[Rfam]
RNA sequence: UUGGUGUGAUUAUAAAGCAAUGAGACUGAUUGUCAUAUGUCGUUUGUGGGAUCCGUCUCAGUUACUUUAUAGCCAUACCUGGUA
Numbered sequence: 001u002u003g004g005u006g007u008g009a010u011u012a013u014a015a016a017g018c019a020a021u022g023a024g025a026c027u028g029a030u031u032g033u034c035a036u037a038u039g040u041c042g043u044u045u046g047u048g049g050g051a052u053c054c055g056u057c058u059c060a061g062u063u064a065c066u067u068u069a070u071a072g073c074c075a076u077a078c079c080u081g082g083u084a
Stems, first nucleotide, its partner, number of pairs: 001081001003079001005077004010072008021060006028053004033049005
This 84-nucleotide RNA from Cricetulus griseus belongs to the Rfam family "mir-340 microRNA precursor family". The organism belongs to Cricetulus, within Eukaryota. Gene Ontology terms of the family: RISC complex and miRNA-mediated post-transcriptional gene silencing.